[Rfam]
RNA sequence: CUGGGCUACGGAGACAUGUACCCAGAGACGUGGUCAGGGAUGCUGGUGGGCGCUCUGUGUGCCUUGGCGGGGGUGCUGACCAUCGCCAUGCCCGUACCUGUAAUCGUCAACAAC
Numbered sequence: 001c002u003g004g005g006c007u008a009c010g011g012a013g014a015c016a017u018g019u020a021c022c023c024a025g026a027g028a029c030g031u032g033g034u035c036a037g038g039g040a041u042g043c044u045g046g047u048g049g050g051c052g053c054u055c056u057g058u059g060u061g062c063c064u065u066g067g068c069g070g071g072g073g074u075g076c077u078g079a080c081c082a083u084c085g086c087c088a089u090g091c092c093c094g095u096a097c098c099u100g101u102a103a104u105c106g107u108c109a110a111c112a113a114c
Stems, first nucleotide, its partner, number of pairs: 002113001004111001008107004014101003018097004037077002040074001049063003